[Rfam]
RNA sequence: CGUGUGGUGUCCGGCAAAAAGGCCCGGAUAGCGACACGGCCUUAACCGAGGU
Numbered sequence: 001c002g003u004g005u006g007g008u009g010u011c012c013g014g015c016a017a018a019a020a021g022g023c024c025c026g027g028a029u030a031g032c033g034a035c036a037c038g039g040c041c042u043u044a045a046c047c048g049a050g051g052u
Stems, first nucleotide, its partner, number of pairs: 001038005007032002011027004015022001